[Rfam]
Rfam assigns this 108-nucleotide RNA sequence from Cicer arietinum to the family "Small nucleolar RNA snoR97". Lineage of the source: Eukaryota > Embryophyta > Gunneridae > Fabales > Cicer. Rfam 15.1 lists 862 matches to the family in 223 species. It is annotated as an H/ACA-box small nucleolar RNA. It scores 93 bits against the family's covariance model. Pairs were carried over by alignment from the consensus structure, which was predicted with WAR.
RNA sequence: CCUUUUUAUAUGGUUUAGAGUCUGAAAAAACUCAUAUAUUCGGUGUUGUCUAUCAGCUUCAUCUUUUGAUUCCCCACGAGAAUGGAGUUAAAUAACAGCACAACAUUU
Numbered sequence: 001c002c003u004u005u006u007u008a009u010a011u012g013g014u015u016u017a018g019a020g021u022c023u024g025a026a027a028a029a030a031c032u033c034a035u036a037u038a039u040u041c042g043g044u045g046u047u048g049u050c051u052a053u054c055a056g057c058u059u060c061a062u063c064u065u066u067u068g069a070u071u072c073c074c075c076a077c078g079a080g081a082a083u084g085g086a087g088u089u090a091a092a093u094a095a096c097a098g099c100a101c102a103a104c105a106u107u108u
Stems, first nucleotide, its partner, number of pairs: 043101006055089006062081004